Rfam assigns this 155-nucleotide RNA from Aneurinibacillus danicus to the family "FMN riboswitch aptamer (RFN element)". Rfam links the family to the GO term FMN binding. Lineage of the source: Bacteria > Bacillati > Bacillota > Caryophanales > Aneurinibacillus. The match comes from Rfam's covariance-model search (108 bits).

[Rfam]
Nucleotides: 155
Stems, first nucleotide, its partner, number of pairs: 006150005017029003031135002033125002035066004061123002070100008105121005127138003
Number, partner (000 for none) and nucleotide at each position: 001000a002000u003000a004000a005000a006150c007149c008148u009147u010146c011000a012000g013000g014000g015000c016000a017029g018028g019027g020000u021000g022000a023000a024000a025000u026000u027019c028018c029017c030000g031135a032134c033125c034124g035066g036065c037064g038063g039000u040000g041000a042000u043000g044000g045000g046000g047000c048000u049000u050000c051000g052000u053000g054000c055000u056000u057000c058000u059000c060000a061123g062122u063038c064037c065036g066035c067000g068000a069000c070100c071099c072098g073097a074096a075095c076094g077093c078000a079000a080000a081000a082000u083000c084000a085000g086000c087000a088000a089000c090000c091000g092000c093077g094076c095075g096074u097073u098072u099071g100070g101000u102000g103000g104000a105121u106120c107119c108118g109117g110000u111000g112000c113000a114000a115000c116000u117109c118108c119107g120106g121105g122062a123061c124034c125033g126000a127138c128137a129136g130000u131000a132000u133000a134032g135031u136129c137128u138127g139000g140000a141000u142000g143000g144000g145000a146010g147009a148008a149007g150006g151000g152000a153000g154000a155000a